[Rfam]
RNA sequence: GAAGCACUCCAGACCGCCGCUGGUGCAAUCGCCGAAAGGCCGCACUGGAGGAAGGUCCGGACUGCACAGAGCAGCGUAGGGGGUAACACCCCUCCGGCGUGAGCCGAGGAUCAGAGCAACAGAGACGAGUCCAUGGUCUCAAGGAAGGCGCGGUGCAAGCUGCCACUUCCUGAAUCCGACCCACAGGGCCUGGCUUGCCGGGCAUGCUGGGCGGGGCGCCGCAAGGCGAGGGCCAUGGGGUGAAACGGGCAAUCUCUACGCGCAGCAACACCAAGUAGGCCGGUUUUGAGGUGGCUCGCUGAGCCGGCGGGUAGGUGGCAUCGAGCCGGGGUGUGAGCCCCGGCCCAGAGGAAUGGCGGUCACCGGCCCCGCAAGGGGUCGGACACAGAAUCCGGCCUAUCGGGGUGCUUCACGA
Numbered sequence: 001g002a003a004g005c006a007c008u009c010c011a012g013a014c015c016g017c018c019g020c021u022g023g024u025g026c027a028a029u030c031g032c033c034g035a036a037a038g039g040c041c042g043c044a045c046u047g048g049a050g051g052a053a054g055g056u057c058c059g060g061a062c063u064g065c066a067c068a069g070a071g072c073a074g075c076g077u078a079g080g081g082g083g084u085a086a087c088a089c090c091c092c093u094c095c096g097g098c099g100u101g102a103g104c105c106g107a108g109g110a111u112c113a114g115a116g117c118a119a120c121a122g123a124g125a126c127g128a129g130u131c132c133a134u135g136g137u138c139u140c141a142a143g144g145a146a147g148g149c150g151c152g153g154u155g156c157a158a159g160c161u162g163c164c165a166c167u168u169c170c171u172g173a174a175u176c177c178g179a180c181c182c183a184c185a186g187g188g189c190c191u192g193g194c195u196u197g198c199c200g201g202g203c204a205u206g207c208u209g210g211g212c213g214g215g216g217c218g219c220c221g222c223a224a225g226g227c228g229a230g231g232g233c234c235a236u237g238g239g240g241u242g243a244a245a246c247g248g249g250c251a252a253u254c255u256c257u258a259c260g261c262g263c264a265g266c267a268a269c270a271c272c273a274a275g276u277a278g279g280c281c282g283g284u285u286u287u288g289a290g291g292u293g294g295c296u297c298g299c300u301g302a303g304c305c306g307g308c309g310g311g312u313a314g315g316u317g318g319c320a321u322c323g324a325g326c327c328g329g330g331g332u333g334u335g336a337g338c339c340c341c342g343g344c345c346c347a348g349a350g351g352a353a354u355g356g357c358g359g360u361c362a363c364c365g366g367c368c369c370c371g372c373a374a375g376g377g378g379u380c381g382g383a384c385a386c387a388g389a390a391u392c393c394g395g396c397c398u399a400u401c402g403g404g405g406u407g408c409u410u411c412a413c414g415a
Base pairs, nucleotide, nucleotide: 001411002410003409004408005407006406007405008404009403010402011400012361013360014359015358016357017356018355020048021047022046023045024044025043026042053398054397055396057395058394059393060392061391062265063264064263065262069297070296071295072294074261075260076259077258078257079093080092081091082090083089094108095106096105097104098103109256110255114254115253116250117249131239132238133236134235135234136233137232138231139230269317270316271315272314279308280307281306282305283304284303290300291299292298325344326343327342328341329340330339331338332337

Shown here is a 415-nucleotide RNA sequence from Inhella proteolytica, a member of the family "Bacterial RNase P class A". It scores 184 bits against the family's covariance model. By type it is a ribozyme.